The record is a 169-nucleotide RNA sequence from Butyrivibrio sp. CB08, which matches "Clostridiales-1 RNA" in Rfam. Lineage of the source: Bacteria > Bacillota > Lachnospirales > Lachnospiraceae > Butyrivibrio. Rfam 15.1 lists 1,172 matches to the family in 137 species.
RNA sequence: UGGUACUAUAGGGGAAUAAGAAAAAGGAGUGACCAUGUUUACAUGGUUCACUCCUUUUAUUUAUGACCCGCCCAAACAUGAGGAAAAAAGAAGCGCGAAGAAUGAGCGAUUCGAUUUCCGAAUGUUUGCAGGAUUGCGAGAGCGAAGCGAAGCAAUCCGUAUAGUACCA
Numbered sequence: 001u002g003g004u005a006c007u008a009u010a011g012g013g014g015a016a017u018a019a020g021a022a023a024a025a026g027g028a029g030u031g032a033c034c035a036u037g038u039u040u041a042c043a044u045g046g047u048u049c050a051c052u053c054c055u056u057u058u059a060u061u062u063a064u065g066a067c068c069c070g071c072c073c074a075a076a077c078a079u080g081a082g083g084a085a086a087a088a089a090g091a092a093g094c095g096c097g098a099a100g101a102a103u104g105a106g107c108g109a110u111u112c113g114a115u116u117u118c119c120g121a122a123u124g125u126u127u128g129c130a131g132g133a134u135u136g137c138g139a140g141a142g143c144g145a146a147g148c149g150a151a152g153c154a155a156u157c158c159g160u161a162u163a164g165u166a167c168c169a
Stems, first nucleotide, its partner, number of pairs: 001169007012067001017063004022058011033046005073128007082119004090112003094108003131158007142148002